Guanidine-I riboswitch aptamer: a 135-nucleotide RNA sequence from Microcystis aeruginosa. Pairs were carried over by alignment from the consensus structure. It scores 83 bits against the family's covariance model. Lineage of the source: Bacteria > Cyanobacteriota > Chroococcales > Microcystis > Microcystis aeruginosa. Rfam's curators write: This family represents a conserved RNA structure found upstream of the ykkC and yxkD genes in Bacillus subtilis and related genes in other bacteria. The function of this family is unclear although it has been suggested that it may function to switch on efflux pumps and detoxification systems in response to harmful environmental molecules.
RNA sequence: AGAAAUUGCUUCUAGGGUUCCGAUUUAAGCGUCCUUAAAUGUCAGGUCCGAGAGGAGCAAGCUAGUCUUAUAAUGAUCGGAUCAAAAAAUUUUCCGUCUAAGCUGGCUACACGGCGGGAUAAAAGCCCGGGAGAC
Numbered sequence: 001a002g003a004a005a006u007u008g009c010u011u012c013u014a015g016g017g018u019u020c021c022g023a024u025u026u027a028a029g030c031g032u033c034c035u036u037a038a039a040u041g042u043c044a045g046g047u048c049c050g051a052g053a054g055g056a057g058c059a060a061g062c063u064a065g066u067c068u069u070a071u072a073a074u075g076a077u078c079g080g081a082u083c084a085a086a087a088a089a090u091u092u093u094c095c096g097u098c099u100a101a102g103c104u105g106g107c108u109a110c111a112c113g114g115c116g117g118g119a120u121a122a123a124a125g126c127c128c129g130g131g132a133g134a135c
Stems, first nucleotide, its partner, number of pairs: 007059006015049002020046002022043001023040006060108007110130001112133001116128003